Overview
The family of this 134-nucleotide RNA sequence from Wenzhouxiangella marina is "SAM riboswitch aptamer (S box leader)". About the family: The SAM riboswitch is found upstream of a number of genes which code for proteins involved in methionine or cysteine biosynthesis in Gram-positive bacteria. The SAM riboswitch acts at the level of transcription termination control. The predicted structure consists of a complex stem-loop region followed by a single stem loop terminator region. An alternative and mutually exclusive form involves bases in the 3' segment of helix 1 with those in the 5' region of helix 5 to form a structure termed the anti-terminator form. A search with the family's covariance model found it, with a score of 69 bits. NCBI's taxonomy places the organism under Bacteria, Pseudomonadota, Chromatiales, Wenzhouxiangellaceae, Wenzhouxiangella.
RNA sequence: AACUCAUCGAGACCGACCGAGGGACAGGCCCUUUGACGUCGGGGCAACCAGCUGCAUUCGCCGAGGCAGGCGUUUCAGCCAGGUGCCAAAUCCUGCGGAGCACGGAUCAUGAUCCGGCGACCGAGAGAUGAGCG
Numbered sequence: 001a002a003c004u005c006a007u008c009g010a011g012a013c014c015g016a017c018c019g020a021g022g023g024a025c026a027g028g029c030c031c032u033u034u035g036a037c038g039u040c041g042g043g044g045c046a047a048c049c050a051g052c053u054g055c056a057u058u059c060g061c062c063g064a065g066g067c068a069g070g071c072g073u074u075u076c077a078g079c080c081a082g083g084u085g086c087c088a089a090a091u092c093c094u095g096c097g098g099a100g101c102a103c104g105g106a107u108c109a110u111g112a113u114c115c116g117g118c119g120a121c122c123g124a125g126a127g128a129u130g131a132g133c134g
Stems, first nucleotide, its partner, number of pairs: 003132006013042005021031003025095004043087004048083002051079004091126001096123003